A member of the RNA family "Small Cajal body specific RNA 3" from Crypturellus undulatus, 137 nucleotides long. The match comes from Rfam's covariance-model search (87 bits). scaRNAs are a specific class of small nuclear RNAs which localise to the Cajal bodies and guide the modification of RNA polymerase II transcribed spliceosomal RNAs U1, U2, U4, U5 and U12. Rfam links the family to the GO terms Cajal body, nucleolus and RNA processing. The family has 23 seed sequences and 642 matches in Rfam 15.1. It is annotated as a small Cajal body RNA.
RNA sequence: GCUGGGACCAACUGGAACCAGUUGUGUGGUCAAAUGAAGUGUGUUUUGUCCAAUCUUGCCAGCUUCCUAGAGUAAAGGGGAGGUCUCUGUCUGCUUCAGCACAGCCCGCUGAAGCAGAUCGUUCCCCUCCGCACAUG
Numbered sequence: 001g002c003u004g005g006g007a008c009c010a011a012c013u014g015g016a017a018c019c020a021g022u023u024g025u026g027u028g029g030u031c032a033a034a035u036g037a038a039g040u041g042u043g044u045u046u047u048g049u050c051c052a053a054u055c056u057u058g059c060c061a062g063c064u065u066c067c068u069a070g071a072g073u074a075a076a077g078g079g080g081a082g083g084u085c086u087c088u089g090u091c092u093g094c095u096u097c098a099g100c101a102c103a104g105c106c107c108g109c110u111g112a113a114g115c116a117g118a119u120c121g122u123u124c125c126c127c128u129c130c131g132c133a134c135a136u137g
Stems, first nucleotide, its partner, number of pairs: 004067003008062001012058001025053001027052003031048001036045002079130005087121001089119003093115007
Dot-bracket structure: ...(((.(...(............(.(((.(....((......))..).))))....)...)..)))...........(((((...(.(((.(((((((.........))))))).))).)....))))).......